Record summary:
The family of this 92-nucleotide RNA is "malK-III RNA". The base pairs follow the family's consensus structure, which is taken from published work.
RNA sequence: CGCCUCAGGGACGCGUACGGGACCCGUCCGAGUCCGCCUUCGGCGGCCGGAUGCAGGGGUCCACGCUGGACCGGAGGAGGGAGUGCGCCAUG
Numbered sequence: 001c002g003c004c005u006c007a008g009g010g011a012c013g014c015g016u017a018c019g020g021g022a023c024c025c026g027u028c029c030g031a032g033u034c035c036g037c038c039u040u041c042g043g044c045g046g047c048c049g050g051a052u053g054c055a056g057g058g059g060u061c062c063a064c065g066c067u068g069g070a071c072c073g074g075a076g077g078a079g080g081g082a083g084u085g086c087g088c089c090a091u092g
Stems, first nucleotide, its partner, number of pairs: 014065003020062006026052003034046004